[Rfam]
RNA sequence: GUGGUGAGUUGUAUUCAGCAUUCCAAAAGAUUGUUGAGCAACAGUGGCAGCUCAUCGCGGUAGGUUGCAAUUAGCCUAAUGGUAAGGCAUCAGUCGCUUAAACUGGAGACUGUAGGUUCAAAUCCUACAUUGUAAAUCAAAAAUGCAAAGACUGCCACGGUCAUGUGUGAAAAGUAUCUAAUACUUGACACGUAAGUGAAUCAAGUUUAGUGAAGCUCGCAAGGUGACACUAAUUUGUGGAGGGGGGUUCGUAAGUGGUUAGCACCACCGAAUAGCUCGCAAGGCUAACGGAAUGGAAUCCGCAGAAUAGCACAUGAUGACAAGACUACAGCCUGUCUUUAAAAACGGCGAUACUGGUAACAGACAUAGAUACCGAAAGGGUUUAUGUGGAUGUCAAGAGAAGGUAUGCUCGCAAGGUGUACUAUAAUGCUUGAGGUGUUACUGGUUAAGAUGUAAUCUCAGUCU
Numbered sequence: 001g002u003g004g005u006g007a008g009u010u011g012u013a014u015u016c017a018g019c020a021u022u023c024c025a026a027a028a029g030a031u032u033g034u035u036g037a038g039c040a041a042c043a044g045u046g047g048c049a050g051c052u053c054a055u056c057g058c059g060g061u062a063g064g065u066u067g068c069a070a071u072u073a074g075c076c077u078a079a080u081g082g083u084a085a086g087g088c089a090u091c092a093g094u095c096g097c098u099u100a101a102a103c104u105g106g107a108g109a110c111u112g113u114a115g116g117u118u119c120a121a122a123u124c125c126u127a128c129a130u131u132g133u134a135a136a137u138c139a140a141a142a143a144u145g146c147a148a149a150g151a152c153u154g155c156c157a158c159g160g161u162c163a164u165g166u167g168u169g170a171a172a173a174g175u176a177u178c179u180a181a182u183a184c185u186u187g188a189c190a191c192g193u194a195a196g197u198g199a200a201u202c203a204a205g206u207u208u209a210g211u212g213a214a215g216c217u218c219g220c221a222a223g224g225u226g227a228c229a230c231u232a233a234u235u236u237g238u239g240g241a242g243g244g245g246g247g248u249u250c251g252u253a254a255g256u257g258g259u260u261a262g263c264a265c266c267a268c269c270g271a272a273u274a275g276c277u278c279g280c281a282a283g284g285c286u287a288a289c290g291g292a293a294u295g296g297a298a299u300c301c302g303c304a305g306a307a308u309a310g311c312a313c314a315u316g317a318u319g320a321c322a323a324g325a326c327u328a329c330a331g332c333c334u335g336u337c338u339u340u341a342a343a344a345a346c347g348g349c350g351a352u353a354c355u356g357g358u359a360a361c362a363g364a365c366a367u368a369g370a371u372a373c374c375g376a377a378a379g380g381g382u383u384u385a386u387g388u389g390g391a392u393g394u395c396a397a398g399a400g401a402a403g404g405u406a407u408g409c410u411c412g413c414a415a416g417g418u419g420u421a422c423u424a425u426a427a428u429g430c431u432u433g434a435g436g437u438g439u440u441a442c443u444g445g446u447u448a449a450g451a452u453g454u455a456a457u458c459u460c461a462g463u464c465u
Base pairs, nucleotide, nucleotide: 001058002057003056004055005054006053007052008042009041010040011039012038015037016036017035018034019033020032022030023029044158045157046156047155048154049153050152145220146219160318161317162316163315164314165313166312167311168310174354175353176352177351178350183206184205185204186203187202188201189198190197191196207233208232209231210230211229215225216224217223236304237303238302239301240300249291250290251289252288274286275285276284277283331349332348333347335346336345356443357442358441360439361438362437364388365387366386367385368384369383370382390458391457392456395433396432397431398430400428450464451463452462
RNA: Giant, ornate, lake- and Lactobacillales-derived (GOLLD) RNA